[Rfam]
RNA sequence: ACCAAGCUAAAAUGAGCUGACUCCGCCCCGUGGCGGUACGGUGGUUCCACGGGGUUUGGAGGGAGUCGGGGGGUGGUUUUAGUAGGUAAGAAUCCCACACGCUGGCGUGUCCAGGCCAGUGUCUUUUGUAGAUUUCCACCUCCUCAAAA
Numbered sequence: 001a002c003c004a005a006g007c008u009a010a011a012a013u014g015a016g017c018u019g020a021c022u023c024c025g026c027c028c029c030g031u032g033g034c035g036g037u038a039c040g041g042u043g044g045u046u047c048c049a050c051g052g053g054g055u056u057u058g059g060a061g062g063g064a065g066u067c068g069g070g071g072g073g074u075g076g077u078u079u080u081a082g083u084a085g086g087u088a089a090g091a092a093u094c095c096c097a098c099a100c101g102c103u104g105g106c107g108u109g110u111c112c113a114g115g116c117c118a119g120u121g122u123c124u125u126u127u128g129u130a131g132a133u134u135u136c137c138a139c140c141u142c143c144u145c146a147a148a149a
Stems, first nucleotide, its partner, number of pairs: 026054008055148005069143008082098002085095002100121006